[Rfam]
RNA sequence: AGCGCCAGGGUUGAUCAACCGAUCAUCACUGGAUAUAAUUAUCAGUUUCGCAAUUUUGGCGAUAAAUAGCUAAGGUAGAGACAUGGCCCGUAUCGCAGGCGUCAACAUUCCGAAC
Numbered sequence: 001a002g003c004g005c006c007a008g009g010g011u012u013g014a015u016c017a018a019c020c021g022a023u024c025a026u027c028a029c030u031g032g033a034u035a036u037a038a039u040u041a042u043c044a045g046u047u048u049c050g051c052a053a054u055u056u057u058g059g060c061g062a063u064a065a066a067u068a069g070c071u072a073a074g075g076u077a078g079a080g081a082c083a084u085g086g087c088c089c090g091u092a093u094c095g096c097a098g099g100c101g102u103c104a105a106c107a108u109u110c111c112g113a114a115c
Base pairs, nucleotide, nucleotide: 004060005059006058007057008056009055010054011053012052013051024099026097029090031088032087